The record is a 76-nucleotide RNA sequence from Ameiurus melas, which matches "mir-7563 microRNA precursor family" in Rfam. Taxonomically the source falls in Ameiurus (Eukaryota, Gnathostomata, Osteoglossocephalai, Ictaluridae). Its family is annotated with miRNA-mediated post-transcriptional gene silencing and RISC complex in the Gene Ontology. Pairs were carried over by alignment from the consensus structure, which was predicted with RNAalifold.

[Rfam]
RNA sequence: ACCAUGUACUUACCUACUGUAUAGUAGAUGAAAUACAUGUAUUUCUCCUACUAUAUAGCAGGAAAGUAUGUGGUUU
Numbered sequence: 001a002c003c004a005u006g007u008a009c010u011u012a013c014c015u016a017c018u019g020u021a022u023a024g025u026a027g028a029u030g031a032a033a034u035a036c037a038u039g040u041a042u043u044u045c046u047c048c049u050a051c052u053a054u055a056u057a058g059c060a061g062g063a064a065a066g067u068a069u070g071u072g073g074u075u076u
Base pairs, nucleotide, nucleotide: 001074002073003072004071005070006069007068008067009066010065011064013062014061015060017058018057019056020055021054022053023052024051025050026049027048030045031044033042034041035040